[Rfam]
RNA sequence: CUGCCAUAACAACCACAGCAGAAGCGUUCAUGUUACGGUGCUGUUAGUUUCCAACAAAUCUACAAAUUCUGCU
Number, nucleotide and partner (000 for none) at each position: 001c000002u000003g000004c000005c000006a000007u000008a000009a000010c040011a000012a039013c038014c037015a000016c000017a073018g072019c071020a070021g069022a068023a067024g036025c000026g034027u000028u000029c000030a000031u000032g000033u000034u026035a000036c024037g014038g013039u012040g010041c000042u000043g000044u000045u062046a061047g060048u000049u058050u057051c000052c000053a000054a000055c000056a000057a050058a049059u000060c047061u046062a045063c000064a000065a000066a000067u023068u022069c021070u020071g019072c018073u017
RNA: Mammalian CPEB3 ribozyme
Organism: Alligator mississippiensis